[Rfam]
RNA sequence: GGUUCGGGAGCGGCCGGUGGGACGGCCCGCAGGAAUGGAACCUCCCCCCUUGUUUCGUGAGCGGUGCAUCGCCGGGGCCCGACGGCAGGACGCA
Dot-bracket structure: (((((....(((((((......)))).))).......)))))......................(((.(.((((........))))...).)))
RNA: Rhodo-rpoB RNA
Organism: Rhodovulum sp. P5